RNA sequence: UACCGCGGUUUUCCUCGGCAGUUAACUGCCAUCGGUUUUCUAAAACUUCGACAGUUAACUGCCGAGGGGCAU
Numbered sequence: 001u002a003c004c005g006c007g008g009u010u011u012u013c014c015u016c017g018g019c020a021g022u023u024a025a026c027u028g029c030c031a032u033c034g035g036u037u038u039u040c041u042a043a044a045a046c047u048u049c050g051a052c053a054g055u056u057a058a059c060u061g062c063c064g065a066g067g068g069g070c071a072u
Stems, first nucleotide, its partner, number of pairs: 012068002015065014

About this RNA
The family of this 72-nucleotide RNA from Medicago truncatula is "MIR2629 microRNA precursor family". The base pairs follow the family's consensus structure, which was predicted with RNAalifold. Lineage of the source: Eukaryota > Streptophyta > Fabaceae > Trifolieae > Medicago. It scores 68 bits against the family's covariance model.